[Rfam]
This 106-nucleotide RNA sequence from Sulfobacillus acidophilus belongs to the Rfam family "SAM riboswitch aptamer (S box leader)".

RNA sequence: CUCUUAUGGAGAGUGGCGGAGGGACGGGCCCGACGAUGCCACGGCAACCGGUGCGUUCGACGUACGACGGUGCCAAAUCCUGCAGCAGCCUGCUGAGAAAUGAGAG
Numbered sequence: 001c002u003c004u005u006a007u008g009g010a011g012a013g014u015g016g017c018g019g020a021g022g023g024a025c026g027g028g029c030c031c032g033a034c035g036a037u038g039c040c041a042c043g044g045c046a047a048c049c050g051g052u053g054c055g056u057u058c059g060a061c062g063u064a065c066g067a068c069g070g071u072g073c074c075a076a077a078u079c080c081u082g083c084a085g086c087a088g089c090c091u092g093c094u095g096a097g098a099a100a101u102g103a104g105a106g
Stems, first nucleotide, its partner, number of pairs: 001106007013042005021031003025082004043074004048070002051065003078098001083095005
Source information:
A search with the family's covariance model found it, with a score of 85 bits. From the family's description: The SAM riboswitch is found upstream of a number of genes which code for proteins involved in methionine or cysteine biosynthesis in Gram-positive bacteria.